This 87-nucleotide sequence from Diplocloster agilis belongs to the Rfam family "c-di-GMP-I riboswitch aptamer".
The source organism's lineage runs through Bacteria, Bacillati, Bacillota, Lachnospirales and Diplocloster.
RNA sequence: AAUUUAUAAAGGCAAAACUGUCGAAAGAUAGUGACGCAAAGCUAUAGGGUCUAAGUCUUUUAAAGGAUAUGACGGCCAGUUGCAACU
Numbered sequence: 001a002a003u004u005u006a007u008a009a010a011g012g013c014a015a016a017a018c019u020g021u022c023g024a025a026a027g028a029u030a031g032u033g034a035c036g037c038a039a040a041g042c043u044a045u046a047g048g049g050u051c052u053a054a055g056u057c058u059u060u061u062a063a064a065g066g067a068u069a070u071g072a073c074g075g076c077c078a079g080u081u082g083c084a085a086c087u
Stems, first nucleotide, its partner, number of pairs: 012037002017032006040081004047077002049073003056067004